RNA sequence: GUGGCUUCAAAUAUUGAUUUUAUUAAUGCUUGCAUAUUUUUUGUAAUGUGUUUGCAAUGUUUAAUUGAAGCCUAUAAUUGUGUUCCCCUCGCUAUCCACUACUGCAAUUCUAAUGCUGUAAUUGGACGUCGGGGAACCAGAUUU
Numbered sequence: 001g002u003g004g005c006u007u008c009a010a011a012u013a014u015u016g017a018u019u020u021u022a023u024u025a026a027u028g029c030u031u032g033c034a035u036a037u038u039u040u041u042u043g044u045a046a047u048g049u050g051u052u053u054g055c056a057a058u059g060u061u062u063a064a065u066u067g068a069a070g071c072c073u074a075u076a077a078u079u080g081u082g083u084u085c086c087c088c089u090c091g092c093u094a095u096c097c098a099c100u101a102c103u104g105c106a107a108u109u110c111u112a113a114u115g116c117u118g119u120a121a122u123u124g125g126a127c128g129u130c131g132g133g134g135a136a137c138c139a140g141a142u143u144u
Stems, first nucleotide, its partner, number of pairs: 001075002003072003008067003012063001016062002019059001027056003031050001034049003082137007090128002095126004104116003
RNA: Small nucleolar RNA snoR136
Organism: Trifolium pratense